[Rfam]
RNA sequence: CCAGUCGUAGCCGACGUUCCACAAGAGGGGCCCGAGAACCGACCCCUGUGGAACGCCGCAUGACAUC
Numbered sequence: 001c002c003a004g005u006c007g008u009a010g011c012c013g014a015c016g017u018u019c020c021a022c023a024a025g026a027g028g029g030g031c032c033c034g035a036g037a038a039c040c041g042a043c044c045c046c047u048g049u050g051g052a053a054c055g056c057c058g059c060a061u062g063a064c065a066u067c
Stems, first nucleotide, its partner, number of pairs: 004064005010059002013056001015055006024049001026047002029045002033041002
RNA: mir-3389 microRNA precursor family
Organism: Chrysodeixis includens